[Rfam]
The record is a 75-nucleotide RNA sequence from Streptomyces sp. yr375, which matches "ASpks TB sRNA" in Rfam. Taxonomically the source falls in Streptomyces (Bacteria, Bacillati, Actinomycetes, Kitasatosporales). For this family Rfam cites "Identification of small RNAs in Mycobacterium tuberculosis" (Arnvig and Young, Mol Microbiol, 2009). By type it is an antisense RNA. A search with the family's covariance model found it, with a score of 65 bits.
RNA sequence: CUUGACCGAGCCCAGCCACACCGGGUCGGCCGGGUCGCGGCCCUGCCCGUAGGUGGCCAGCAGGGCGCCGGCCUC
Numbered sequence: 001c002u003u004g005a006c007c008g009a010g011c012c013c014a015g016c017c018a019c020a021c022c023g024g025g026u027c028g029g030c031c032g033g034g035u036c037g038c039g040g041c042c043c044u045g046c047c048c049g050u051a052g053g054u055g056g057c058c059a060g061c062a063g064g065g066c067g068c069c070g071g072c073c074u075c
Stems, first nucleotide, its partner, number of pairs: 014026001016024002031071001033069001038065001043060003047056003